[Rfam]
RNA: FuFi-1 RNA
RNA sequence: UAAGGCUGAUCUCUGAGCGGAACAAAAACCGCUAAAGUGAGUUGCGCGCCAUAGAAGCCGUGUGUUACUUCUUGGUAUGCUUCACAAUCUCUGUUCGAAGUGCAGAGAAGCACACAACAAUUCGCCGUCAGAAACAAGCGUCUUGCACAGGGAAGUGCGUACCAAACGCGACCUUGAGUUGUGACGUAUUGCAACGCGUGUAGGUAAACAAAUUUUGGAGAAAGGCUUUGUGAGUACCUGUUCAACCGGGUAAAGUAACCUCGCAAGGUCUUUU
Numbered sequence: 001u002a003a004g005g006c007u008g009a010u011c012u013c014u015g016a017g018c019g020g021a022a023c024a025a026a027a028a029c030c031g032c033u034a035a036a037g038u039g040a041g042u043u044g045c046g047c048g049c050c051a052u053a054g055a056a057g058c059c060g061u062g063u064g065u066u067a068c069u070u071c072u073u074g075g076u077a078u079g080c081u082u083c084a085c086a087a088u089c090u091c092u093g094u095u096c097g098a099a100g101u102g103c104a105g106a107g108a109a110g111c112a113c114a115c116a117a118c119a120a121u122u123c124g125c126c127g128u129c130a131g132a133a134a135c136a137a138g139c140g141u142c143u144u145g146c147a148c149a150g151g152g153a154a155g156u157g158c159g160u161a162c163c164a165a166a167c168g169c170g171a172c173c174u175u176g177a178g179u180u181g182u183g184a185c186g187u188a189u190u191g192c193a194a195c196g197c198g199u200g201u202a203g204g205u206a207a208a209c210a211a212a213u214u215u216u217g218g219a220g221a222a223a224g225g226c227u228u229u230g231u232g233a234g235u236a237c238c239u240g241u242u243c244a245a246c247c248g249g250g251u252a253a254a255g256u257a258a259c260c261u262c263g264c265a266a267g268g269u270c271u272u273u274u
Stems, first nucleotide, its partner, number of pairs: 002042001006039001016033005023217005044199005057076004062071001064259007077189004082184007222272013